[Rfam]
RNA: Group II catalytic intron D1-D4-1
RNA sequence: CGGGAUCUGGCGGAGACGCCGGUUUCUUGACCUGUGAGGAGUCAGCAGAGGUCAUGGUACCCAGCCCCUUUUCUGGGGGGUGGGGAAGGAC
Numbered sequence: 001c002g003g004g005a006u007c008u009g010g011c012g013g014a015g016a017c018g019c020c021g022g023u024u025u026c027u028u029g030a031c032c033u034g035u036g037a038g039g040a041g042u043c044a045g046c047a048g049a050g051g052u053c054a055u056g057g058u059a060c061c062c063a064g065c066c067c068c069u070u071u072u073c074u075g076g077g078g079g080g081u082g083g084g085g086a087a088g089g090a091c
Stems, first nucleotide, its partner, number of pairs: 001029002005024001007022006042049002051091003060084003066080003